[Rfam]
RNA sequence: CACGACCAUAUUGUCCUGUCACAGCAGUACGUGUUGCCCACAGUUACUGCUGCGUCCGGACAAGCGGGCCGUG
Numbered sequence: 001c002a003c004g005a006c007c008a009u010a011u012u013g014u015c016c017u018g019u020c021a022c023a024g025c026a027g028u029a030c031g032u033g034u035u036g037c038c039c040a041c042a043g044u045u046a047c048u049g050c051u052g053c054g055u056c057c058g059g060a061c062a063a064g065c066g067g068g069c070c071g072u073g
Stems, first nucleotide, its partner, number of pairs: 003071002006068001012062005018056001022052008